[Rfam]
RNA: c-di-AMP riboswitch aptamer (ydaO/yuaA leader)
RNA sequence: UCCGGACGGACGCCGAACCCUGUCACCGGCCGGGGAAGCCCACGAACCGUAUGACAGGGGCGGGGGACCCAUUCCCGGGCGCCAGGGUGCGUCCUUGGGGUAAAGCGGCGCUGACCUCGUCACGCGUCGCCGGGUGUGCUCUCCUACCCGAACCCGACAGCUGACCUCGUAGGCAUCUGGAGAUACUCG
Numbered sequence: 001u002c003c004g005g006a007c008g009g010a011c012g013c014c015g016a017a018c019c020c021u022g023u024c025a026c027c028g029g030c031c032g033g034g035g036a037a038g039c040c041c042a043c044g045a046a047c048c049g050u051a052u053g054a055c056a057g058g059g060g061c062g063g064g065g066g067a068c069c070c071a072u073u074c075c076c077g078g079g080c081g082c083c084a085g086g087g088u089g090c091g092u093c094c095u096u097g098g099g100g101u102a103a104a105g106c107g108g109c110g111c112u113g114a115c116c117u118c119g120u121c122a123c124g125c126g127u128c129g130c131c132g133g134g135u136g137u138g139c140u141c142u143c144c145u146a147c148c149c150g151a152a153c154c155c156g157a158c159a160g161c162u163g164a165c166c167u168c169g170u171a172g173g174c175a176u177c178u179g180g181a182g183a184u185a186c187u188c189g
Stems, first nucleotide, its partner, number of pairs: 012174003018059008060170006070097002098155003106129006132149004